[Rfam]
RNA: t44 RNA
Organism: Rehaibacterium terrae
RNA sequence: GUCACCGGCGAAUACACACCCGCAUCACCGCCCCGUGCCGGGGUGCCCCGCGAGGGGUUCGGCCACGGAGGAUGCGGGGAGGCCCAAC
Numbered sequence: 001g002u003c004a005c006c007g008g009c010g011a012a013u014a015c016a017c018a019c020c021c022g023c024a025u026c027a028c029c030g031c032c033c034c035g036u037g038c039c040g041g042g043g044u045g046c047c048c049c050g051c052g053a054g055g056g057g058u059u060c061g062g063c064c065a066c067g068g069a070g071g072a073u074g075c076g077g078g079g080a081g082g083c084c085c086a087a088c
Base pairs, nucleotide, nucleotide: 019078020077021076022075023074024073025072026071033068034067035066036065037063038062039061040060045058046057047056048055049054